[Rfam]
A member of the RNA family "Glycine riboswitch aptamer" from Nonomuraea jabiensis, 101 nucleotides long.
RNA sequence: CGACCCCGUGCGGGAGAGUCCUUGAGACCGCCGUGGUCUCAGGGCGCCGAAGGAGCAACCCUCCCCGGAAUCUCUCAGGCACCCUGUACCGCUCGGGUGAG
Number, nucleotide and partner (000 for none) at each position: 001c000002g000003a000004c000005c000006c096007c095008g094009u000010g092011c091012g090013g089014g000015a000016g000017a000018g000019u000020c044021c043022u042023u041024g040025a039026g038027a037028c036029c000030g000031c000032c000033g000034u000035g000036g028037u027038c026039u025040c024041a023042g022043g021044g020045c000046g080047c079048c078049g076050a075051a000052g000053g074054a073055g072056c000057a000058a000059c068060c067061c000062u000063c000064c000065c000066c000067g060068g059069a000070a000071u000072c055073u054074c053075u050076c049077a000078g048079g047080c046081a000082c000083c000084c000085u000086g000087u000088a000089c013090c012091g011092c010093u000094c008095g007096g006097g000098u000099g000100a000101g000
Annotation
It scores 60 bits against the family's covariance model.